[Rfam]
RNA sequence: AGUCUCAUUCUAGAUUACAAUGGGCACUGUCAAUUGGUGUCCAAAAUAUGUGGCUAAAACUGAGACACAAGUCAUGCUUCCAUCACAGUAAAUGUUACCAUGGUGACAAUGAGACUUGUAACAUUU
Numbered sequence: 001a002g003u004c005u006c007a008u009u010c011u012a013g014a015u016u017a018c019a020a021u022g023g024g025c026a027c028u029g030u031c032a033a034u035u036g037g038u039g040u041c042c043a044a045a046a047u048a049u050g051u052g053g054c055u056a057a058a059a060c061u062g063a064g065a066c067a068c069a070a071g072u073c074a075u076g077c078u079u080c081c082a083u084c085a086c087a088g089u090a091a092a093u094g095u096u097a098c099c100a101u102g103g104u105g106a107c108a109a110u111g112a113g114a115c116u117u118g119u120a121a122c123a124u125u126u
Stems, first nucleotide, its partner, number of pairs: 002054003006050003021043007067119005081105005
RNA: Small nucleolar RNA SNORA1